[Rfam]
RNA sequence: ACACGGGAAAGGAGGUGGUCCAGCUGAUGAGCUACAGGACACGUGAGGUGGCCGUCCGCUAGCACCACGUUCUUCCGCAGCGGCGAGACCGCGCGGAGACGGUCGUGGAAGCCGGUUGUGGUGCCGGCGAAUUCCAGACGGUCGACCCGUGAUCCCCGGGCCCGAACCUUGUCCGGUUCGGCGUGCGCACCCUCGUGCGGCCCGGGGAUCACGCAUG
Number, nucleotide and partner (000 for none) at each position: 001a000002c000003a000004c000005g000006g000007g000008a000009a000010a000011g000012g000013a000014g056015g055016u054017g053018g052019u051020c000021c000022a000023g000024c000025u000026g000027a000028u000029g000030a000031g000032c000033u000034a000035c000036a000037g000038g000039a000040c000041a000042c000043g000044u000045g000046a000047g000048g000049u000050g000051g019052c018053c017054g016055u015056c014057c129058g128059c127060u126061a000062g124063c123064a000065c121066c120067a119068c118069g000070u000071u115072c114073u000074u000075c000076c000077g000078c000079a000080g000081c000082g000083g000084c000085g000086a000087g000088a000089c000090c000091g000092c000093g000094c000095g000096g000097a000098g000099a000100c000101g000102g000103u000104c000105g000106u000107g000108g000109a000110a000111g000112c000113c000114g072115g071116u000117u000118g068119u067120g066121g065122u000123g063124c062125c000126g060127g059128c058129g057130a000131a000132u000133u000134c000135c000136a000137g000138a000139c000140g000141g000142u000143c000144g000145a000146c000147c000148c000149g000150u211151g210152a209153u208154c207155c206156c205157c204158g203159g202160g201161c200162c199163c180164g179165a178166a177167c176168c175169u000170u000171g000172u000173c000174c000175g168176g167177u166178u165179c164180g163181g000182c000183g000184u000185g000186c000187g000188c000189a000190c000191c000192c000193u000194c000195g000196u000197g000198c000199g162200g161201c160202c159203c158204g157205g156206g155207g154208a153209u152210c151211a150212c000213g000214c000215a000216u000217g000
RNA: Actinobacteria sRNA Ms_IGR-5
Organism: Pseudonocardia sp. C8